[Rfam]
RNA sequence: AGUUGCGGAGAAACUAUCAUUGGUAGUUUUUUGUAGCUGUUCCCCUCUGGAGGUUUGACGACCUUCACACUUGAAGCAUCCGUUCGCGGGUGCUUUUU
Numbered sequence: 001a002g003u004u005g006c007g008g009a010g011a012a013a014c015u016a017u018c019a020u021u022g023g024u025a026g027u028u029u030u031u032u033g034u035a036g037c038u039g040u041u042c043c044c045c046u047c048u049g050g051a052g053g054u055u056u057g058a059c060g061a062c063c064u065u066c067a068c069a070c071u072u073g074a075a076g077c078a079u080c081c082g083u084u085c086g087c088g089g090g091u092g093c094u095u096u097u098u
Stems, first nucleotide, its partner, number of pairs: 001038005010032004048067007076093007